The record is a 107-nucleotide sequence from Populus trichocarpa, which matches "MIR1446 microRNA precursor family" in Rfam. Rfam's curators put it in the seed alignment. Rfam 15.1 lists 39 matches to the family in 21 species. Pairs were carried over by alignment from the consensus structure, which was predicted with RNAalifold. The organism belongs to Populus, within Eukaryota.

[Rfam]
RNA sequence: CCAACUUUUUCUGAACUCUCUCCCUCAACUGCUAUUCUAGAGCUUGUUAAUCCUUGUCAAGUGUUUCCCUGUAGCAGUCGAGGCGAGGGGGUUUCGGAAAAUGUUGG
Numbered sequence: 001c002c003a004a005c006u007u008u009u010u011c012u013g014a015a016c017u018c019u020c021u022c023c024c025u026c027a028a029c030u031g032c033u034a035u036u037c038u039a040g041a042g043c044u045u046g047u048u049a050a051u052c053c054u055u056g057u058c059a060a061g062u063g064u065u066u067c068c069c070u071g072u073a074g075c076a077g078u079c080g081a082g083g084c085g086a087g088g089g090g091g092u093u094u095c096g097g098a099a100a101a102u103g104u105u106g107g
Base pairs, nucleotide, nucleotide: 001107002106003105004104005103009099010098011097012096013095014094015093016090018089019088020087021086022085023083024082025081026080028078029077030076031075032074033073034072035071040066041065042064043063